[Rfam]
This 100-nucleotide RNA sequence from Enterococcus sp. PFB1-1 belongs to the Rfam family "azaaromatic riboswitch aptamer (yjdF RNA)".
RNA sequence: CUACGAUUACACAAAAACACAUCGCGGUUGGUAGUCCGUGAGCACAAAAAAUUGUGUCAGUAACCUUCCCUCCAGGUCGUCCAGUGUAAUUUUUAUAAGG
Numbered sequence: 001c002u003a004c005g006a007u008u009a010c011a012c013a014a015a016a017a018c019a020c021a022u023c024g025c026g027g028u029u030g031g032u033a034g035u036c037c038g039u040g041a042g043c044a045c046a047a048a049a050a051a052u053u054g055u056g057u058c059a060g061u062a063a064c065c066u067u068c069c070c071u072c073c074a075g076g077u078c079g080u081c082c083a084g085u086g087u088a089a090u091u092u093u094u095a096u097a098a099g100g
Base pairs, nucleotide, nucleotide: 005091006090007089008088009087010086011085022041023040024039025038026037027036042057043056044055045054046053047052068076069075